[Rfam]
RNA: SAM riboswitch aptamer (S box leader)
RNA sequence: UACUUAUCAAGAGUGAGUGAGGGAUAAGGCCCAGUGAACUCCAGCAACCUAAAGCAUAGCUUUAAGGUGCUUUCCUAAGCAGAGUAAGAUUACUUUGAGCGAUGAGAA
Number, nucleotide and partner (000 for none) at each position: 001u108002a000003c106004u105005u104006a103007u102008c101009a000010a000011g000012a000013g042014u000015g041016a040017g039018u000019g000020a000021g032022g031023g030024a000025u000026a000027a000028g000029g076030c023031c022032c021033a000034g000035u000036g000037a000038a000039c017040u016041c015042c013043a071044g070045c069046a068047a000048c067049c066050u064051a063052a062053a061054g000055c000056a000057u000058a000059g000060c000061u053062u052063u051064a050065a000066g049067g048068u046069g045070c044071u043072u000073u000074c000075c000076u029077a000078a000079g000080c097081a096082g095083a094084g093085u092086a000087a000088g000089a000090u000091u000092a085093c084094u083095u082096u081097g080098a000099g000100c000101g008102a007103u006104g005105a004106g003107a000108a001